[Rfam]
RNA sequence: UGCAGCCUUGUCAAAUUUGGUGCUCUUCUGCUAAGUGGGGAGGACUAGCCCUGUGGCUGCCACAAAAAAAAUGUAGUUCAUGGGCCCCAGGUCUUUGUUGUUUGACCUGGGGAUAAAAGCAUGCUACAAACAAGU
Numbered sequence: 001u002g003c004a005g006c007c008u009u010g011u012c013a014a015a016u017u018u019g020g021u022g023c024u025c026u027u028c029u030g031c032u033a034a035g036u037g038g039g040g041a042g043g044a045c046u047a048g049c050c051c052u053g054u055g056g057c058u059g060c061c062a063c064a065a066a067a068a069a070a071a072u073g074u075a076g077u078u079c080a081u082g083g084g085c086c087c088c089a090g091g092u093c094u095u096u097g098u099u100g101u102u103u104g105a106c107c108u109g110g111g112g113a114u115a116a117a118a119g120c121a122u123g124c125u126a127c128a129a130a131c132a133a134g135u
Stems, first nucleotide, its partner, number of pairs: 002060004018047004023042006073127005078121001085112005
This 135-nucleotide RNA sequence from Anolis carolinensis belongs to the Rfam family "Small nucleolar RNA SNORA5". It is annotated as an H/ACA-box small nucleolar RNA. The family is grouped with related families in Rfam's "SNORA5 clan".